[Rfam]
Shown here is a 409-nucleotide sequence from Beijerinckia indica, a member of the family "Bacterial RNase P class A". The family's consensus secondary structure is taken from published work. The sequence is in the family's curated seed alignment. For this family Rfam cites "Ribonuclease P: unity and diversity in a tRNA processing ribozyme" (Frank and Pace, Annu Rev Biochem, 1998). It is annotated as a ribozyme. Rfam's curators write: Ribonuclease P (RNase P) is a ubiquitous endoribonuclease, found in archaea, bacteria and eukarya as well as chloroplasts and mitochondria.
RNA sequence: CCAGUCGGCCGGAUGGCCACCGCUCAGGCGGAGGAAAGUCCGGGCUCCAUGGAAACACGGUGCCGGAUAAUGUCCGGCGAGGGUGACCUCAGGGAAAGCGCCACAGAAAGGAAACCGCCUCGCAACCGAGCCGAAAGGCGAGGACCGCGGAGGUAAGGGUGAAAGGGUGCGGCAAGAGCGCACCGCGCUUAUGGUGACAUGAGCGGCACGGCAAGCCCCACCGGGAGCAAGACCGAAUAGGGGCGACAGGCAGCGAACCCAUUCGAUGGGACGCUCAAAUCCGUUUCCAGAUUGUCGCCCGGGUUGGUUGCUCGAGGCGGCUGGCAACAGCCGUCCUAGAGGAAUGGUCAUCACGCAAGCGGUUUCGCCGCUUGCCUUACAGAACCCGGCUUACAGGCCGACUGGUAUU
Dot-bracket structure: ((((((((((((((((((.((((....))))....[[[.[[[[[((((.....[[..((((((((((.....)))))(((((....)))).)((...(((((............(((((((((.......................)).)))))..)).......((((((.......))))))(((((((((....)))))))).)..)))..)))))))))))))...((((......((((((...............................((((...]]...)))).)))))).....))))......((((((((....))))))))..........)))))))................................]]]]]]]].).))))))))))....